This 99-nucleotide sequence from Miniimonas arenae belongs to the Rfam family "SAM riboswitch aptamer (S box leader)". Its family is annotated with regulation of gene expression in the Gene Ontology. The organism belongs to Miniimonas, within Bacteria. The SAM riboswitch is found upstream of a number of genes which code for proteins involved in methionine or cysteine biosynthesis in Gram-positive bacteria. Pairs were carried over by alignment from the consensus structure, which is taken from published work.
RNA sequence: UGACCAUCCAGAGCAGCCGAGAGACCUGGCUCGACGACGCUGCAGCAACCCCCCGCGACCUCACGCGGGAGAGGGUGCUCAUGCCAGGACCGAUGGAGA
Number, nucleotide and partner (000 for none) at each position: 001u099002g000003a000004c096005c095006a094007u093008c092009c000010a000011g000012a000013g043014c042015a041016g040017c039018c000019g000020a000021g032022a031023g030024a000025c000026c087027u086028g085029g084030c023031u022032c021033g000034a000035c000036g000037a000038c000039g017040c016041u015042g014043c013044a079045g078046c077047a076048a000049c075050c074051c071052c000053c069054c068055g000056c000057g000058a000059c000060c000061u000062c000063a000064c000065g000066c000067g000068g054069g053070a000071g051072a000073g000074g050075g049076u047077g046078c045079u044080c000081a000082u000083g091084c029085c028086a027087g026088g000089a000090c000091c083092g008093a007094u006095g005096g004097a000098g000099a001